Rfam assigns this 81-nucleotide RNA sequence from Labrus bergylta to the family "mir-181 microRNA precursor family". Rfam 15.1 lists 3,490 matches to the family in 650 species. A search with the family's covariance model found it, with a score of 61 bits. The source organism's lineage runs through Eukaryota, Teleostomi, Actinopteri, Neopterygii and Labrus.

RNA sequence: AAAUGUUCGGGAACAUUCAACGCUGUCGGUGAGUUUGUGAGUCAGAGAAACCAUCGAGUGUUGAGUGUACCCUUACACAUG
Numbered sequence: 001a002a003a004u005g006u007u008c009g010g011g012a013a014c015a016u017u018c019a020a021c022g023c024u025g026u027c028g029g030u031g032a033g034u035u036u037g038u039g040a041g042u043c044a045g046a047g048a049a050a051c052c053a054u055c056g057a058g059u060g061u062u063g064a065g066u067g068u069a070c071c072c073u074u075a076c077a078c079a080u081g
Stems, first nucleotide, its partner, number of pairs: 002080001004077003014067009026057006033051004
Dot-bracket structure: .(.(((.......(((((((((...((((((.((((...........)))))))))).))))))))).......)))..).